[Rfam]
RNA sequence: AUCCUUCCCGCAUGUGUCGCUGACGGUCGUCAGCACCAUGCCCUGGCAGCUCCGGUCUUCAAGGCUGCAACGCGCCUCGCCGCGUUGACCGAUCCAGUCCGCCUCGCACCGACCACCGCGGACGCGCGUCGCCACGACGCGGGUGU
Numbered sequence: 001a002u003c004c005u006u007c008c009c010g011c012a013u014g015u016g017u018c019g020c021u022g023a024c025g026g027u028c029g030u031c032a033g034c035a036c037c038a039u040g041c042c043c044u045g046g047c048a049g050c051u052c053c054g055g056u057c058u059u060c061a062a063g064g065c066u067g068c069a070a071c072g073c074g075c076c077u078c079g080c081c082g083c084g085u086u087g088a089c090c091g092a093u094c095c096a097g098u099c100c101g102c103c104u105c106g107c108a109c110c111g112a113c114c115a116c117c118g119c120g121g122a123c124g125c126g127c128g129u130c131g132c133c134a135c136g137a138c139g140c141g142g143g144u145g146u
Stems, first nucleotide, its partner, number of pairs: 011040004019034006046068006054090004069086006118146003125141007
This 146-nucleotide RNA belongs to the Rfam family "radC RNA". It scores 107 bits against the family's covariance model. It is annotated as a cis-regulatory element.